[Rfam]
RNA: Small nucleolar RNA R32/R81/Z41
Organism: Phtheirospermum japonicum
RNA sequence: GGAUGAAAAUGAUGAGAAUUUGAAGGGUGAUGGUGAAUUCCACCUGAUCAACACAUAAUCUUCAUUUCGCUACGUUCUUCCUGAUUCGUCC
Numbered sequence: 001g002g003a004u005g006a007a008a009a010u011g012a013u014g015a016g017a018a019u020u021u022g023a024a025g026g027g028u029g030a031u032g033g034u035g036a037a038u039u040c041c042a043c044c045u046g047a048u049c050a051a052c053a054c055a056u057a058a059u060c061u062u063c064a065u066u067u068c069g070c071u072a073c074g075u076u077c078u079u080c081c082u083g084a085u086u087c088g089u090c091c
Stems, first nucleotide, its partner, number of pairs: 004088004